Shown here is a 108-nucleotide RNA sequence from Alteromonas pelagimontana, a member of the family "Ribosomal S15 leader". Its Rfam clan is "Ribosomal Protein S15 Leader clan". The literature on the family includes a 1996 paper in Biochimie by Benard et al., "Pseudoknot and translational control in the expression of the S15 ribosomal protein". The family's RNA type in Rfam is cis-regulatory leader.
RNA sequence: UAAUCUGGCUGAAUUAGUGAUUGGCCAGAUUUCACUCACUAGGAGAUACAUAUGUCACUAACUAAAGAAGAAACUGCAAAUCUUAUUGCCGAAUAUGGCGUAAAGGAA
Numbered sequence: 001u002a003a004u005c006u007g008g009c010u011g012a013a014u015u016a017g018u019g020a021u022u023g024g025c026c027a028g029a030u031u032u033c034a035c036u037c038a039c040u041a042g043g044a045g046a047u048a049c050a051u052a053u054g055u056c057a058c059u060a061a062c063u064a065a066a067g068a069a070g071a072a073a074c075u076g077c078a079a080a081u082c083u084u085a086u087u088g089c090c091g092a093a094u095a096u097g098g099c100g101u102a103a104a105g106g107a108a
Stems, first nucleotide, its partner, number of pairs: 007026006040061001042059002045056001

Rfam describes the family as follows. The E. coli Ribosomal S15 gene 5' UTR can form two alternative structures. One that is a series of three hairpins, The other includes a pseudoknot. This structure causes translational regulation of the S15 protein. The family's consensus secondary structure is taken from published work.